[Rfam]
RNA sequence: UUGCAUCGGGUAAGUCCUACACGGCUAGCUCCCCUUGACUCCCCCAGGGCUUGAUCGCAGCAAGGGUAGAGGGUCGUAGCAGCGCGAUGUGGUAAGCUUACCCGCUG
Numbered sequence: 001u002u003g004c005a006u007c008g009g010g011u012a013a014g015u016c017c018u019a020c021a022c023g024g025c026u027a028g029c030u031c032c033c034c035u036u037g038a039c040u041c042c043c044c045c046a047g048g049g050c051u052u053g054a055u056c057g058c059a060g061c062a063a064g065g066g067u068a069g070a071g072g073g074u075c076g077u078a079g080c081a082g083c084g085c086g087a088u089g090u091g092g093u094a095a096g097c098u099u100a101c102c103c104g105c106u107g
Base pairs, nucleotide, nucleotide: 008103009102010101011100012099013098014097015096017092018091019090020089021088022086023085024083025082
Shown here is a 107-nucleotide RNA from Porphyromonas crevioricanis, a member of the family "Bacteroidales small SRP". A reference for the family is Ryan et al. (2020), "A high-resolution transcriptome map identifies small RNA regulation of metabolism in the gut microbe Bacteroides thetaiotaomicron", Nat Commun. Clan: SRP clan. Lineage of the source: Bacteria > Pseudomonadati > Bacteroidales > Porphyromonadaceae > Porphyromonas. The match comes from Rfam's covariance-model search (110 bits). Pairs were carried over by alignment from the consensus structure, which is taken from published work.